TPP riboswitch aptamer (THI element): a 110-nucleotide RNA from Virgisporangium ochraceum. It scores 58 bits against the family's covariance model. Gene Ontology term of the family: thiamine pyrophosphate binding.
RNA sequence: AUACGCAGACGCGGGAGCUCGACGCAUCGGGCUGAGAGGACGGCUAUGGCGCCGUCGACCGCAGGAACCUGUCCGGGUAAUGCCGGCGUAGGGAGCUGACACGGCCCAUG
Numbered sequence: 001a002u003a004c005g006c007a008g009a010c011g012c013g014g015g016a017g018c019u020c021g022a023c024g025c026a027u028c029g030g031g032c033u034g035a036g037a038g039g040a041c042g043g044c045u046a047u048g049g050c051g052c053c054g055u056c057g058a059c060c061g062c063a064g065g066a067a068c069c070u071g072u073c074c075g076g077g078u079a080a081u082g083c084c085g086g087c088g089u090a091g092g093g094a095g096c097u098g099a100c101a102c103g104g105c106c107c108a109u110g
Stems, first nucleotide, its partner, number of pairs: 006098003010095001011062004017032005039056005068092004073086004